[Rfam]
RNA sequence: CGAAGUUAAGAAAUUGUUUCUUAACUUUUAACUAAAAAAACUAAGAACUGAUUCUUAAAUAAGGAUUUUAAGAACCGUUCUUAGUUUUUUUUAGUUAAAAGUUAAGAAACAGUUUUUUAACUUCC
Numbered sequence: 001c002g003a004a005g006u007u008a009a010g011a012a013a014u015u016g017u018u019u020c021u022u023a024a025c026u027u028u029u030a031a032c033u034a035a036a037a038a039a040a041c042u043a044a045g046a047a048c049u050g051a052u053u054c055u056u057a058a059a060u061a062a063g064g065a066u067u068u069u070a071a072g073a074a075c076c077g078u079u080c081u082u083a084g085u086u087u088u089u090u091u092u093a094g095u096u097a098a099a100a101g102u103u104a105a106g107a108a109a110c111a112g113u114u115u116u117u118u119a120a121c122u123u124c125c
Stems, first nucleotide, its partner, number of pairs: 002124038041084007
Shown here is a 125-nucleotide RNA from Brassica oleracea, a member of the family "MIR9563 microRNA precursor family". Gene Ontology terms of the family: RISC complex and miRNA-mediated post-transcriptional gene silencing. Taxonomically the source falls in Brassica oleracea (Eukaryota, Spermatophyta, eudicotyledons, Brassicales). Pairs were carried over by alignment from the consensus structure, which was predicted with RNAalifold.